[Rfam]
RNA sequence: GCUCUGUGAUGAACCCCAUGCGUGUCAUCUGAGCCCAGAUUCCCUGUUGUCUCAGCCCUGGUGUGGUGUUCUACUUCCCAGAGCUGUUGUCUGACCCAGUAGGAGUCUGGACAAAGGGAUCUAUCUUUCCAUUCUGAGAGC
Numbered sequence: 001g002c003u004c005u006g007u008g009a010u011g012a013a014c015c016c017c018a019u020g021c022g023u024g025u026c027a028u029c030u031g032a033g034c035c036c037a038g039a040u041u042c043c044c045u046g047u048u049g050u051c052u053c054a055g056c057c058c059u060g061g062u063g064u065g066g067u068g069u070u071c072u073a074c075u076u077c078c079c080a081g082a083g084c085u086g087u088u089g090u091c092u093g094a095c096c097c098a099g100u101a102g103g104a105g106u107c108u109g110g111a112c113a114a115a116g117g118g119a120u121c122u123a124u125c126u127u128u129c130c131a132u133u134c135u136g137a138g139a140g141c
Base pairs, nucleotide, nucleotide: 001141002140003139004138043102044099045098046097047094048093

Shown here is a 141-nucleotide sequence from Echinops telfairi, a member of the family "Small nucleolar RNA SNORD10". For this family Rfam cites "RNomics: an experimental approach that identifies 201 candidates for novel, small, non-messenger RNAs in mouse" (Huttenhofer et al., EMBO J, 2001). The source organism's lineage runs through Eukaryota, Bilateria, Eutheria, Afrosoricida and Echinops. The sequence is in the family's curated seed alignment. It is annotated as a C/D-box small nucleolar RNA.